RNA sequence: GAGCUGUGAUGAGAUCUGGAGAUAGUCAUGCACCACUCUUACAAAAUUUAUUUUUUGAGUGAUGAUAUAUUUCUCAUACCCAUUUUGUUUCUGAGCUC
Numbered sequence: 001g002a003g004c005u006g007u008g009a010u011g012a013g014a015u016c017u018g019g020a021g022a023u024a025g026u027c028a029u030g031c032a033c034c035a036c037u038c039u040u041a042c043a044a045a046a047u048u049u050a051u052u053u054u055u056u057g058a059g060u061g062a063u064g065a066u067a068u069a070u071u072u073c074u075c076a077u078a079c080c081c082a083u084u085u086u087g088u089u090u091c092u093g094a095g096c097u098c
Stems, first nucleotide, its partner, number of pairs: 001098004
Shown here is a 98-nucleotide sequence from Nicotiana sylvestris, a member of the family "Small nucleolar RNA Z221/R21b". Gene Ontology terms of the family: nucleolus and RNA processing. For this family Rfam cites "The high diversity of snoRNAs in plants: identification and comparative study of 120 snoRNA genes from Oryza sativa" (Chen et al., Nucleic Acids Res, 2003). The family has 12 seed sequences and 588 matches in Rfam 15.1. A search with the family's covariance model found it, with a score of 71 bits. Taxonomically the source falls in Nicotiana (Eukaryota, Viridiplantae, Tracheophyta, Gunneridae). The family's consensus secondary structure was predicted with WAR. It is annotated as a C/D-box small nucleolar RNA.